[Rfam]
RNA sequence: GCCCCUAUAGCCCAAUUGGCAGAGGCAGAGGACUUAAAAUCCUUGUGUUCUCGGUUCGAGUCCGAGUAGGGGCA
Numbered sequence: 001g002c003c004c005c006u007a008u009a010g011c012c013c014a015a016u017u018g019g020c021a022g023a024g025g026c027a028g029a030g031g032a033c034u035u036a037a038a039a040u041c042c043u044u045g046u047g048u049u050c051u052c053g054g055u056u057c058g059a060g061u062c063c064g065a066g067u068a069g070g071g072g073c074a
Stems, first nucleotide, its partner, number of pairs: 001073007010026003028044005050066005

The family of this 74-nucleotide RNA from Rothia nasimurium is "tRNA". The family's consensus secondary structure is taken from published work.